[Rfam]
This 437-nucleotide part of an RNA from Plasmodium falciparum belongs to the Rfam family "Eukaryotic large subunit ribosomal RNA". The family is grouped with related families in Rfam's "LSU clan". The family has 88 seed sequences and 107,465 matches in Rfam 15.1. A search with the family's covariance model found it, with a score of 2658 bits.
RNA sequence: GAAUUUUAUUAUAUUUUUUAUAUAUACAUAUAGUAUUGUGACAGUAAUCCAACUUGGUACGAGAGGAUUAGUUGGUUCAGACAAUUGGUACAGCAAUUGGUUGACAAACCAGUGUUGCGAAGCUAAGUCUGUUGGAUAAUGGCUGAACGCCUCUUAAGCCAGAAACCAUGCUGAUUAAACAAUACUAUUUCGUUCUUUUUUGUUUCCUUUUUUACUGCUAAUGUAAAAGAGAAAUUAUAUAUGUGCCUUUUUUUGGUACAUAAAUAAUCCUAUCACCUUUUUCGUGAGCUGUGAGCUGUGAGCUAGGCAAUAGUUCUUUAACAACAAAAAAGAAUUGCACAAACUGUAGACGACUUUUUUGCCUCAGGGUGCUGUAAACAUGAAAGUAAACUUUGUUUUACGAUCUGUUGAGGCUUAUCCCUAGUGGUAAAGUGUUU
Number, nucleotide and partner (000 for none) at each position: 001g000002a000003a000004u000005u000006u000007u000008a000009u000010u000011a000012u000013a000014u000015u000016u000017u000018u000019u000020a000021u000022a000023u000024a000025u000026a000027c000028a000029u000030a000031u000032a186033g185034u184035a183036u182037u181038g180039u179040g000041a000042c173043a172044g171045u170046a000047a077048u000049c075050c074051a073052a072053c071054u070055u000056g000057g000058u000059a000060c000061g000062a000063g000064a000065g000066g000067a000068u000069u000070a054071g053072u052073u051074g050075g049076u000077u047078c131079a130080g129081a128082c127083a000084a000085u000086u125087g124088g123089u000090a000091c000092a000093g118094c117095a116096a115097u112098u111099g110100g109101u108102u107103g000104a000105c000106a000107a102108a101109c100110c099111a098112g097113u000114g000115u096116u095117g094118c093119g000120a000121a000122g000123c088124u087125a086126a000127g082128u081129c080130u079131g078132u000133u168134g167135g166136a000137u000138a000139a000140u161141g160142g159143c158144u157145g000146a000147a000148c000149g000150c000151c000152u000153c000154u000155u000156a000157a144158g143159c142160c141161a140162g000163a000164a000165a000166c135167c134168a133169u000170g045171c044172u043173g042174a000175u000176u000177a000178a000179a039180c038181a037182a036183u035184a034185c033186u032187a000188u000189u000190u000191c000192g000193u000194u333195c332196u331197u330198u329199u328200u327201u326202g325203u324204u323205u000206c000207c000208u000209u000210u000211u000212u000213u000214a000215c000216u000217g000218c000219u000220a000221a000222u000223g000224u000225a000226a000227a000228a000229g000230a000231g000232a000233a000234a000235u000236u000237a000238u000239a000240u000241a000242u000243g000244u000245g000246c000247c000248u000249u000250u000251u000252u000253u000254u000255g000256g000257u000258a000259c000260a000261u000262a000263a000264a000265u000266a000267a000268u000269c000270c000271u000272a000273u000274c000275a000276c000277c000278u000279u000280u000281u000282u000283c000284g000285u000286g000287a000288g000289c000290u000291g000292u000293g000294a000295g000296c000297u000298g000299u000300g000301a000302g000303c000304u000305a000306g000307g000308c000309a000310a000311u000312a000313g000314u000315u000316c000317u000318u000319u000320a000321a000322c000323a204324a203325c202326a201327a200328a199329a198330a197331a196332g195333a194334a000335u000336u000337g435338c434339a433340c432341a000342a358343a357344c000345u000346g354347u000348a000349g000350a000351c000352g000353a000354c346355u000356u000357u343358u342359u000360u000361g000362c427363c426364u000365c424366a000367g421368g420369g419370u000371g414372c413373u000374g000375u000376a000377a000378a408379c407380a406381u000382g000383a404384a000385a000386g401387u400388a399389a398390a397391c000392u000393u000394u000395g000396u000397u390398u389399u388400a387401c386402g000403a000404u383405c000406u380407g379408u378409u000410g000411a000412g000413g372414c371415u000416u000417a000418u000419c369420c368421c367422u000423a000424g365425u000426g363427g362428u000429a000430a000431a000432g340433u339434g338435u337436u000437u000